U8 small nucleolar RNA: a 125-nucleotide RNA sequence from Nannospalax galili. The family's consensus secondary structure is taken from published work. Rfam classes the family as a C/D-box small nucleolar RNA. Gene Ontology terms of the family: nucleolus and RNA processing. The source organism's lineage runs through Eukaryota, Deuterostomia, Eutheria, Spalacidae and Nannospalax.
[Rfam]
RNA sequence: UCAUCAGGCAGGAUAAUCCUUACUUGAUCCUCCUUUUGGAGGGCAGAUAGAAAAUAAUGGCUGGGUUCGUGAUUAGCAUCUCUGUGUAAUCAGGACUUGCACUACCCUGAUUGUUCCUAUUUAAU
Numbered sequence: 001u002c003a004u005c006a007g008g009c010a011g012g013a014u015a016a017u018c019c020u021u022a023c024u025u026g027a028u029c030c031u032c033c034u035u036u037u038g039g040a041g042g043g044c045a046g047a048u049a050g051a052a053a054a055u056a057a058u059g060g061c062u063g064g065g066u067u068c069g070u071g072a073u074u075a076g077c078a079u080c081u082c083u084g085u086g087u088a089a090u091c092a093g094g095a096c097u098u099g100c101a102c103u104a105c106c107c108u109g110a111u112u113g114u115u116c117c118u119a120u121u122u123a124a125u
Stems, first nucleotide, its partner, number of pairs: 024046003028043006064082002069077001070075001086114009